Overview
A member of the RNA family "mir-312 microRNA precursor family" from Drosophila rhopaloa, 68 nucleotides long.
RNA sequence: GUUUCGGCUCGUCUCAAAAGCAAUUCUUCGUUUUUCUUGGCUAGCAUUGCACUUGAGACGGCCGCAAU
Numbered sequence: 001g002u003u004u005c006g007g008c009u010c011g012u013c014u015c016a017a018a019a020g021c022a023a024u025u026c027u028u029c030g031u032u033u034u035u036c037u038u039g040g041c042u043a044g045c046a047u048u049g050c051a052c053u054u055g056a057g058a059c060g061g062c063c064g065c066a067a068u
Stems, first nucleotide, its partner, number of pairs: 003066001005064004010060004015055003020050005026044002